[Rfam]
RNA sequence: UUCUAGCGGACGCACGUGUGUGCGUAGCCCUCUGGAUGAUGUUGCUGAUUUCUCAGGCGGAGGCGGCAAUGG
Number, nucleotide and partner (000 for none) at each position: 001u000002u000003c000004u000005a000006g023007c022008g021009g000010a019011c018012g017013c000014a000015c000016g000017u012018g011019u010020g000021u008022g007023c006024g067025u066026a000027g000028c000029c063030c062031u061032c000033u000034g058035g000036a000037u055038g054039a000040u000041g000042u000043u000044g000045c000046u000047g000048a000049u000050u000051u000052c000053u000054c038055a037056g000057g000058c034059g000060g000061a031062g030063g029064c000065g000066g025067c024068a000069a000070u000071g000072g000
This 72-nucleotide sequence from Orthohepacivirus hominis belongs to the Rfam family "Hepatitis C virus stem-loop SL2531 and SL2549AU". Pairs were carried over by alignment from the consensus structure, which was predicted with RNAfold. For this family Rfam cites "The Coding Region of the HCV Genome Contains a Network of Regulatory RNA Structures" (Pirakitikulr et al., Mol Cell, 2016).